[Rfam]
RNA sequence: GCAGACUCACUCUGGGUUAGACCCUUCCCCUGGUCUGGCACUUUUUAAAGUCUGCUACAGGAAAACCCCAGGGCACCUGCGCAUACUCUGUGUCCUAUCAGGGGGCACAAUUGUCACAGGUCCUCUGGGACAGUUGC
Number, nucleotide and partner (000 for none) at each position: 001g055002c054003a053004g052005a051006c050007u000008c000009a000010c000011u000012c000013u000014g041015g000016g039017u038018u037019a036020g035021a000022c033023c032024c000025u000026u000027c000028c000029c000030c000031u000032g023033g022034u000035c020036u019037g018038g017039c016040a000041c014042u000043u000044u000045u000046u000047a000048a000049a000050g006051u005052c004053u003054g002055c001056u000057a000058c000059a000060g000061g000062a000063a000064a000065a000066c000067c000068c128069c127070a126071g125072g124073g123074c000075a000076c120077c119078u118079g117080c000081g115082c000083a000084u113085a112086c000087u000088c000089u000090g000091u000092g000093u000094c000095c000096u000097a000098u000099c000100a000101g000102g000103g000104g000105g000106c000107a000108c000109a000110a000111u000112u085113g084114u000115c081116a000117c079118a078119g077120g076121u000122c000123c073124u072125c071126u070127g069128g068129g000130a000131c000132a000133g000134u000135u000136g000137c000

A member of the RNA family "Small nucleolar RNA SNORA77" from Scyliorhinus torazame, 137 nucleotides long. The base pairs follow the family's consensus structure, which was predicted with RNAalifold. ACA63 (SNORA77) is a member of the H/ACA class of snoRNAs that guide the sites of modification of uridines to pseudouridines. This snoRNA was identified by computational screening and its expression in mouse experimentally verified by Northern blot and primer extension analysis. ACA63 is proposed to guide the pseudouridylation of 18S rRNA U814. Rfam links the family to the GO terms RNA processing and nucleolus. Rfam 15.1 lists 843 matches to the family in 607 species. The organism belongs to Scyliorhinus, within Eukaryota.